[Rfam]
RNA sequence: CUGGCCGGGUGGCGGCCAGUCUAACCCUGAAUUCUGAUAGCUGUGGGUACUGUGCUUUCGGCUCCGCCCGCUGUUUUUCUCGCUGACUUACAGCGGGCGGGAAAGCCCAGACCUGCAGCGGGCCACCGCGCGUUCUCAACCACAAAAAAUGUCAGCGGCGGGCCCGUGUGCCUGGAGCCUUGCGGCCGGCCGCCCAGCCCCGCACCCGCCUGAGGCCGCGGUCGGCCUGGAGCCCUCCGGCUCCGCUGCCGCCGCGAAGAGCUGGGCUCUGUCAGCCGCGGGGCGUCAGGGCUGGGGCGAGCCCCGGCAGCGCCGCAAGCACAGAAACGGAGCUGGUCCCGUGAUCGGUGGCUUCCCUGAGCUGUGGGAAAUGCACCAGGAACUCGGUUCCCACAACC
Numbered sequence: 001c002u003g004g005c006c007g008g009g010u011g012g013c014g015g016c017c018a019g020u021c022u023a024a025c026c027c028u029g030a031a032u033u034c035u036g037a038u039a040g041c042u043g044u045g046g047g048u049a050c051u052g053u054g055c056u057u058u059c060g061g062c063u064c065c066g067c068c069c070g071c072u073g074u075u076u077u078u079c080u081c082g083c084u085g086a087c088u089u090a091c092a093g094c095g096g097g098c099g100g101g102a103a104a105g106c107c108c109a110g111a112c113c114u115g116c117a118g119c120g121g122g123c124c125a126c127c128g129c130g131c132g133u134u135c136u137c138a139a140c141c142a143c144a145a146a147a148a149a150u151g152u153c154a155g156c157g158g159c160g161g162g163c164c165c166g167u168g169u170g171c172c173u174g175g176a177g178c179c180u181u182g183c184g185g186c187c188g189g190c191c192g193c194c195c196a197g198c199c200c201c202g203c204a205c206c207c208g209c210c211u212g213a214g215g216c217c218g219c220g221g222u223c224g225g226c227c228u229g230g231a232g233c234c235c236u237c238c239g240g241c242u243c244c245g246c247u248g249c250c251g252c253c254g255c256g257a258a259g260a261g262c263u264g265g266g267c268u269c270u271g272u273c274a275g276c277c278g279c280g281g282g283g284c285g286u287c288a289g290g291g292c293u294g295g296g297g298c299g300a301g302c303c304c305c306g307g308c309a310g311c312g313c314c315g316c317a318a319g320c321a322c323a324g325a326a327a328c329g330g331a332g333c334u335g336g337u338c339c340c341g342u343g344a345u346c347g348g349u350g351g352c353u354u355c356c357c358u359g360a361g362c363u364g365u366g367g368g369a370a371a372u373g374c375a376c377c378a379g380g381a382a383c384u385c386g387g388u389u390c391c392c393a394c395a396a397c398c
Stems, first nucleotide, its partner, number of pairs: 001174001003172003009167003014164004054106005065099009082156006088149002179319007188303003191299005196293005202287001205282005217256005223251004229244003258270004330390004335384003339380002348376003351372001354369004
Vertebrate telomerase RNA: a 398-nucleotide RNA sequence from Mesocricetus auratus. The family's consensus secondary structure is taken from published work. For this family Rfam cites "Secondary structure of vertebrate telomerase RNA" (Chen et al., Cell, 2000). The organism belongs to Mesocricetus, within Eukaryota. From the family's description: Telomerase is a ribonucleoprotein reverse transcriptase that synthesises telomeric DNA. Telomerase RNAs differ greatly in sequence and structure between vertebrates, ciliates and yeasts, but they share a 5' pseudoknot structure close to the template sequence. Vertebrate telomerase RNAs have a 3' H/ACA snoRNA-like domain.